[Rfam]
RNA sequence: AAGAAAGGAGAGCUCCCCAUAGCCAAAAUCACAGUAUCACAGUAUCACAGUAAUACUGUGAUUUUGGCUAUGGGGAGCUCUCCUUUCUU
Numbered sequence: 001a002a003g004a005a006a007g008g009a010g011a012g013c014u015c016c017c018c019a020u021a022g023c024c025a026a027a028a029u030c031a032c033a034g035u036a037u038c039a040c041a042g043u044a045u046c047a048c049a050g051u052a053a054u055a056c057u058g059u060g061a062u063u064u065u066g067g068c069u070a071u072g073g074g075g076a077g078c079u080c081u082c083c084u085u086u087c088u089u
Stems, first nucleotide, its partner, number of pairs: 007083012021069002024066005
A member of the RNA family "MIR319 microRNA precursor family" from Columbina picui, 89 nucleotides long. The source organism's lineage runs through Eukaryota, Dipnotetrapodomorpha, Coelurosauria, Columbimorphae and Columbina. The family has 11 seed sequences and 168 matches in Rfam 15.1.